[Rfam]
RNA sequence: CUCCCAAACCAAUAGUUCUCUCUUAUGUCACCCUCCUUAAGCACCCACUGAUUGGGUGCUUAAGGAGGGUGACAAAGAAGAA
Numbered sequence: 001c002u003c004c005c006a007a008a009c010c011a012a013u014a015g016u017u018c019u020c021u022c023u024u025a026u027g028u029c030a031c032c033c034u035c036c037u038u039a040a041g042c043a044c045c046c047a048c049u050g051a052u053u054g055g056g057u058g059c060u061u062a063a064g065g066a067g068g069g070u071g072a073c074a075a076a077g078a079a080g081a082a
Stems, first nucleotide, its partner, number of pairs: 016082004023077002026074002028071001031068002036065002038062009
RNA: Insect-specific Flavivirus 3' UTR cis-acting replication element (CRE)
Organism: Trichechus manatus